[Rfam]
RNA sequence: UGGCUAUAGAAUAGUUUAUUCUGUGGUCACUUUGAGUUACGAUAAUUAAUAUGCUAAUUUACCUAAUUAUAGUAACUCCUUACUAAGUGAUUUACUAUAACAUUAUGGUAAAUAUCACCGUGAGUUAUAGUAACACGAGUAUCAUAAAUGUAUAUUUAUGUUAUCGUAAAUUGGUACAAACAUUAUAGUAAAUCAAGGUGGCUAUAGAAUAAGCUAUUUUAUGGCCA
Numbered sequence: 001u002g003g004c005u006a007u008a009g010a011a012u013a014g015u016u017u018a019u020u021c022u023g024u025g026g027u028c029a030c031u032u033u034g035a036g037u038u039a040c041g042a043u044a045a046u047u048a049a050u051a052u053g054c055u056a057a058u059u060u061a062c063c064u065a066a067u068u069a070u071a072g073u074a075a076c077u078c079c080u081u082a083c084u085a086a087g088u089g090a091u092u093u094a095c096u097a098u099a100a101c102a103u104u105a106u107g108g109u110a111a112a113u114a115u116c117a118c119c120g121u122g123a124g125u126u127a128u129a130g131u132a133a134c135a136c137g138a139g140u141a142u143c144a145u146a147a148a149u150g151u152a153u154a155u156u157u158a159u160g161u162u163a164u165c166g167u168a169a170a171u172u173g174g175u176a177c178a179a180a181c182a183u184u185a186u187a188g189u190a191a192a193u194c195a196a197g198g199u200g201g202c203u204a205u206a207g208a209a210u211a212a213g214c215u216a217u218u219u220u221a222u223g224g225c226c227a
Stems, first nucleotide, its partner, number of pairs: 001227033037191004042186005050178001052176011066164002069161003072157001074155001080147003087142003091138002093132009103122001108116001
Dot-bracket structure: (((((((((((((((((((((((((((((((((...((((.(((((...(.(((((((((((...((.((((.(.....(((....(((.(((((((((((.(....(.......).....).)))))))))....)).)))..))).......).).))).)).))))))))))).)...))))).))))...)))))))))))))))))))))))))))))))))